[Rfam]
RNA sequence: UAUCCAUGGGGCGAUGGUGUCCGCCCCGGUAACCGCCCUUGCGGGGCUGAUGACGCCUACAAAAUA
Numbered sequence: 001u002a003u004c005c006a007u008g009g010g011g012c013g014a015u016g017g018u019g020u021c022c023g024c025c026c027c028g029g030u031a032a033c034c035g036c037c038c039u040u041g042c043g044g045g046g047c048u049g050a051u052g053a054c055g056c057c058u059a060c061a062a063a064a065u066a
Stems, first nucleotide, its partner, number of pairs: 010025004016057006035047004
Shown here is a 66-nucleotide sequence from Dinghuibacter silviterrae, a member of the family "Fluoride riboswitch aptamer (crcB RNA motif)". Its family is annotated with positive regulation of gene expression and response to fluoride in the Gene Ontology. The family's consensus secondary structure is taken from published work. Taxonomically the source falls in Dinghuibacter (Bacteria, Pseudomonadati, Bacteroidota, Chitinophagia).